This 177-nucleotide RNA sequence from Sapajus apella belongs to the Rfam family "Small nucleolar RNA SNORA81". Rfam classes the family as an H/ACA-box small nucleolar RNA. It scores 169 bits against the family's covariance model. Gene Ontology terms of the family: RNA processing and nucleolus. The source organism's lineage runs through Eukaryota, Opisthokonta, Eumetazoa, Cebidae and Sapajus. A reference for the family is Gu et al. (2005), "A novel experimental approach for systematic identification of box H/ACA snoRNAs from eukaryotes", Nucleic Acids Res.
RNA sequence: ACUUUAUUGUAUAAGCACUGUGCUAAAAUUAUAGAAACUAGGACCAUAUCUUGUUUUUUGUAAUAAUGCUAGCACAGCGAGACAGGAAGAAAAGUAAUUGCACUAGAUUGUGAAGACUGGGGUACACCUGUUUCUUAAUGUUCAGUGUCCUUUGUCUUAAGAUUUGGUGUAGUAUAU
Numbered sequence: 001a002c003u004u005u006a007u008u009g010u011a012u013a014a015g016c017a018c019u020g021u022g023c024u025a026a027a028a029u030u031a032u033a034g035a036a037a038c039u040a041g042g043a044c045c046a047u048a049u050c051u052u053g054u055u056u057u058u059u060g061u062a063a064u065a066a067u068g069c070u071a072g073c074a075c076a077g078c079g080a081g082a083c084a085g086g087a088a089g090a091a092a093a094g095u096a097a098u099u100g101c102a103c104u105a106g107a108u109u110g111u112g113a114a115g116a117c118u119g120g121g122g123u124a125c126a127c128c129u130g131u132u133u134c135u136u137a138a139u140g141u142u143c144a145g146u147g148u149c150c151u152u153u154g155u156c157u158u159a160a161g162a163u164u165u166g167g168u169g170u171a172g173u174a175u176a177u
Base pairs, nucleotide, nucleotide: 018077019076021074022073023072024071025070028067029066030065031064034058035057037055039053040052041051042050043049099171100170101169102168103167104166105165106164107163119148121146123144126141